[Rfam]
RNA sequence: AAUCGGAUAUAAGUUGAACCGUAGACAGUAGGUGCAUACGCCAGUAUGCUUAAUUUCCUACCGAGGGGAAAUAGGGUAGGUCUUUACUUAUCACUAGCGCCUUCGUAUGUCUGCGGAGGCUUUUUCUAAUGCCGA
Dot-bracket structure: ...........................(((((.((((((....)))))).......))))).....................................(((((((((....)))))))))...............
Numbered sequence: 001a002a003u004c005g006g007a008u009a010u011a012a013g014u015u016g017a018a019c020c021g022u023a024g025a026c027a028g029u030a031g032g033u034g035c036a037u038a039c040g041c042c043a044g045u046a047u048g049c050u051u052a053a054u055u056u057c058c059u060a061c062c063g064a065g066g067g068g069a070a071a072u073a074g075g076g077u078a079g080g081u082c083u084u085u086a087c088u089u090a091u092c093a094c095u096a097g098c099g100c101c102u103u104c105g106u107a108u109g110u111c112u113g114c115g116g117a118g119g120c121u122u123u124u125u126c127u128a129a130u131g132c133c134g135a
Stems, first nucleotide, its partner, number of pairs: 028061005034049006099120009